[Rfam]
RNA sequence: GGGAUUCCUUAUCUGUCUAAUAUGUUGAUUGUAGUCUGGAACCUGCCCCAUUGCGCUCUGUACAAAAGCGCAAUAAGACAGGUUCUAAGUUUAGUUGCCGCGCACUGAUACGGG
Numbered sequence: 001g002g003g004a005u006u007c008c009u010u011a012u013c014u015g016u017c018u019a020a021u022a023u024g025u026u027g028a029u030u031g032u033a034g035u036c037u038g039g040a041a042c043c044u045g046c047c048c049c050a051u052u053g054c055g056c057u058c059u060g061u062a063c064a065a066a067a068g069c070g071c072a073a074u075a076a077g078a079c080a081g082g083u084u085c086u087a088a089g090u091u092u093a094g095u096u097g098c099c100g101c102g103c104a105c106u107g108a109u110a111c112g113g114g
Base pairs, nucleotide, nucleotide: 001099002098004096022090023089025087038086039085040084041083042082043081044080045079047077050074051073052072053071054070056068057067059065